speF leader: a 159-nucleotide RNA from Jiella flava. About the family: This family is a putative regulatory RNA structure that is found upstream of the speF gene encoding ornithine decarboxylase in Agrobacterium tumefaciens and other alpha-proteobacteria. Taxonomically the source falls in Jiella (Bacteria, Pseudomonadati, Pseudomonadota, Aurantimonadaceae). Gene Ontology term of the family: regulation of gene expression.
RNA sequence: UCCCGGUCUCCAAAGCCGGGAAUACUGAAGAGGCACACCUUCCUUGCCUGAAGUGCGGCGGGUCCAAGCCCACCAAACCAUGGCAGACGAAACCGGAAUCUCGCGUUUUUCGCGCGGGCUUUCGAUCAAGUCGCGUCGCGUUGGAAACGUUCCCGUGUG
Numbered sequence: 001u002c003c004c005g006g007u008c009u010c011c012a013a014a015g016c017c018g019g020g021a022a023u024a025c026u027g028a029a030g031a032g033g034c035a036c037a038c039c040u041u042c043c044u045u046g047c048c049u050g051a052a053g054u055g056c057g058g059c060g061g062g063u064c065c066a067a068g069c070c071c072a073c074c075a076a077a078c079c080a081u082g083g084c085a086g087a088c089g090a091a092a093c094c095g096g097a098a099u100c101u102c103g104c105g106u107u108u109u110u111c112g113c114g115c116g117g118g119c120u121u122u123c124g125a126u127c128a129a130g131u132c133g134c135g136u137c138g139c140g141u142u143g144g145a146a147a148c149g150u151u152c153c154c155g156u157g158u159g
Stems, first nucleotide, its partner, number of pairs: 001021007032048004055139003082094002